[Rfam]
RNA sequence: GGUCAUGAGCGCCAGCGCGAAGCCCCGGCUUGCUGGCCGGCAACCCUCCAACCGCGGUGGGGUGCCCCGGGUGAGGACCUGGUCGUCUCGGACCUGAGACGGCAAGCGCGGACC
Numbered sequence: 001g002g003u004c005a006u007g008a009g010c011g012c013c014a015g016c017g018c019g020a021a022g023c024c025c026c027g028g029c030u031u032g033c034u035g036g037c038c039g040g041c042a043a044c045c046c047u048c049c050a051a052c053c054g055c056g057g058u059g060g061g062g063u064g065c066c067c068c069g070g071g072u073g074a075g076g077a078c079c080u081g082g083u084c085g086u087c088u089c090g091g092a093c094c095u096g097a098g099a100c101g102g103c104a105a106g107c108g109c110g111g112a113c114c
Stems, first nucleotide, its partner, number of pairs: 001079004009038001011037006021030002039066003044062003048057002082103009
RNA: SAM (S-adenosyl methionine) riboswitch aptamer
Organism: Phytoactinopolyspora alkaliphila